[Rfam]
RNA: terC RNA
RNA sequence: UCUCCAGACCGGGCCCCUCUGGCAGCCACUGGCUGCGAUGUCGGCUGGAAAC
Numbered sequence: 001u002c003u004c005c006a007g008a009c010c011g012g013g014c015c016c017c018u019c020u021g022g023c024a025g026c027c028a029c030u031g032g033c034u035g036c037g038a039u040g041u042c043g044g045c046u047g048g049a050a051a052c
Base pairs, nucleotide, nucleotide: 006046007045009044010043011042012041022036023035024034025033026032027031
Dot-bracket structure: .....((.((((.........((((((...))))))....))))))......